[Rfam]
RNA sequence: AUGCAUCAAGUAGGAAUUGAACCUAUGAAUUCUCCAAUUAUAAGUUGGGAGCUUUAACCAUUCAGCCAUAGAUGC
Numbered sequence: 001a002u003g004c005a006u007c008a009a010g011u012a013g014g015a016a017u018u019g020a021a022c023c024u025a026u027g028a029a030u031u032c033u034c035c036a037a038u039u040a041u042a043a044g045u046u047g048g049g050a051g052c053u054u055u056a057a058c059c060a061u062u063c064a065g066c067c068a069u070a071g072a073u074g075c
Stems, first nucleotide, its partner, number of pairs: 003075005010026005040069002044066006051059001
The family of this 75-nucleotide sequence from Capsicum annuum is "Plastid-ycf2 5UTR RNA". On this family, see Richter et al., Plant Commun 2023: "Retrograde signaling in plants: A critical review focusing on the GUN pathway and beyond". The family's RNA type in Rfam is cis-regulatory element. Plastid ycf2 is a non-coding RNA (ncRNA) recognised in plastids. Taxonomically the source falls in Capsicum (Eukaryota, Euphyllophyta, Mesangiospermae, Solanoideae). The match comes from Rfam's covariance-model search (83 bits).